RNA: mir-306 microRNA precursor family
Organism: Drosophila willistoni
RNA sequence: GCCUAAACAGCUCAGGUACUUAGUGACUCUCAAAGAAUAUAUAUAGACUUGAGAGACGCUCUGUACCUAGACUGUUGUGU
Number, nucleotide and partner (000 for none) at each position: 001g080002c079003c000004u077005a000006a075007a000008c074009a073010g072011c000012u000013c000014a068015g067016g066017u065018a064019c063020u000021u000022a060023g059024u058025g057026a000027c055028u054029c053030u052031c051032a050033a000034a044035g000036a000037a000038u000039a000040u000041a000042u000043a000044u034045a000046g000047a000048c000049u000050u032051g031052a030053g029054a028055g027056a000057c025058g024059c023060u022061c000062u000063g019064u018065a017066c016067c015068u014069a000070g000071a000072c010073u009074g008075u006076u000077g004078u000079g002080u001